Shown here is an 87-nucleotide sequence from Gossypium mustelinum, a member of the family "MIR7486 microRNA precursor family". Rfam 15.1 lists 10,132 matches to the family in 36 species. The match comes from Rfam's covariance-model search (81 bits). Its family is annotated with RISC complex and miRNA-mediated post-transcriptional gene silencing in the Gene Ontology.
[Rfam]
RNA sequence: UACGCCAGCGCGACCUGCUGAUGUGAAAGGAAAUCGCGUCCUUGAGGGAGCGAUUUCCUUCCACGUUAGCAGGUCGCGCUAACGUGG
Numbered sequence: 001u002a003c004g005c006c007a008g009c010g011c012g013a014c015c016u017g018c019u020g021a022u023g024u025g026a027a028a029g030g031a032a033a034u035c036g037c038g039u040c041c042u043u044g045a046g047g048g049a050g051c052g053a054u055u056u057c058c059u060u061c062c063a064c065g066u067u068a069g070c071a072g073g074u075c076g077c078g079c080u081a082a083c084g085u086g087g
Stems, first nucleotide, its partner, number of pairs: 001086004007080015023064003027060011040047002